RNA sequence: GUGCUGCUCUGAAUGGCACUGGAAGAAUUCACGGGGUGUCUCCUUUCUCCGUGAUUUCCCGGUGCCAAUCAGAGAGGUAC
Numbered sequence: 001g002u003g004c005u006g007c008u009c010u011g012a013a014u015g016g017c018a019c020u021g022g023a024a025g026a027a028u029u030c031a032c033g034g035g036g037u038g039u040c041u042c043c044u045u046u047c048u049c050c051g052u053g054a055u056u057u058c059c060c061g062g063u064g065c066c067a068a069u070c071a072g073a074g075a076g077g078u079a080c
Base pairs, nucleotide, nucleotide: 003078004077005076007074008073009072010071014067015066016065017064018063020061021060022059023057025056026055029054030053031052032051033050034049
Background: The family of this 80-nucleotide RNA sequence from Penaeus vannamei is "mir-263 microRNA precursor family". The organism belongs to Penaeus, within Eukaryota. Rfam 15.1 lists 368 matches to the family in 211 species.